[Rfam]
RNA: Small Cajal body specific RNA 6
RNA sequence: GGUCGAUGAUGACAAAGAAGUUUUCUGAGGGCACAGGGAAAUUCCACCCUAUUACCCUCUUGGCUCCCAGCAGUCCCAGUAUUCUAUCAUGCCUUAGUAGAGCUGUGAUUGAUGAAGAGACUGCUGACAGUUUGGGAUUAAUUGAGUUCCAGCUCUCCACAGUAAAGAGAGUUGUGACACCAAAUGUAAUCCAACAAAUCUGGUGAAGAGGAGCUCAUGGUGAUGGGGUGUCCUUUAUUGCUGUGCAUGAUCAAAGGUUUUCAAGCUGAGACC
Numbered sequence: 001g002g003u004c005g006a007u008g009a010u011g012a013c014a015a016a017g018a019a020g021u022u023u024u025c026u027g028a029g030g031g032c033a034c035a036g037g038g039a040a041a042u043u044c045c046a047c048c049c050u051a052u053u054a055c056c057c058u059c060u061u062g063g064c065u066c067c068c069a070g071c072a073g074u075c076c077c078a079g080u081a082u083u084c085u086a087u088c089a090u091g092c093c094u095u096a097g098u099a100g101a102g103c104u105g106u107g108a109u110u111g112a113u114g115a116a117g118a119g120a121c122u123g124c125u126g127a128c129a130g131u132u133u134g135g136g137a138u139u140a141a142u143u144g145a146g147u148u149c150c151a152g153c154u155c156u157c158c159a160c161a162g163u164a165a166a167g168a169g170a171g172u173u174g175u176g177a178c179a180c181c182a183a184a185u186g187u188a189a190u191c192c193a194a195c196a197a198a199u200c201u202g203g204u205g206a207a208g209a210g211g212a213g214c215u216c217a218u219g220g221u222g223a224u225g226g227g228g229u230g231u232c233c234u235u236u237a238u239u240g241c242u243g244u245g246c247a248u249g250a251u252c253a254a255a256g257g258u259u260u261u262c263a264a265g266c267u268g269a270g271a272c273c
Base pairs, nucleotide, nucleotide: 001273002272003271004270036252041251042250043249046229047228048227049226050225051224052223053222064213065212066211067210068126069125070124071123072122073121074120083112084111086109087108088107089106090105091104092102134192136191137190138189139188140187150174151173152172153171154170155169156168157167